[Rfam]
RNA sequence: AUAUUAAUUAGGCAAACUUACUGAAAAGUAAGGGCGCAAAGCCACGGACCUAAAGCGAGAUCGCCAAGGUAGCCGGGUUGCCGGA
Numbered sequence: 001a002u003a004u005u006a007a008u009u010a011g012g013c014a015a016a017c018u019u020a021c022u023g024a025a026a027a028g029u030a031a032g033g034g035c036g037c038a039a040a041g042c043c044a045c046g047g048a049c050c051u052a053a054a055g056c057g058a059g060a061u062c063g064c065c066a067a068g069g070u071a072g073c074c075g076g077g078u079u080g081c082c083g084g085a
Stems, first nucleotide, its partner, number of pairs: 012037002017032006040079004045075003048070003055064003
This 85-nucleotide RNA from Ferroacidibacillus organovorans belongs to the Rfam family "c-di-GMP-I riboswitch aptamer".